The family of this 75-nucleotide sequence from Albula goreensis is "mir-193 microRNA precursor family". NCBI's taxonomy places the organism under Eukaryota, Vertebrata, Elopocephala, Elopomorpha, Albula. A search with the family's covariance model found it, with a score of 69 bits.

RNA sequence: CCUCAGAUACGGGAUUUUGAGGGCUAGAUGAGUUUCGUUGUAAUCCAACUGGCCCGCAAAGUCCCGCUUCUGGCU
Dot-bracket structure: ..(((((..((((.(((((.((((.((.((...............)).)).)))).))))).))))..)))))..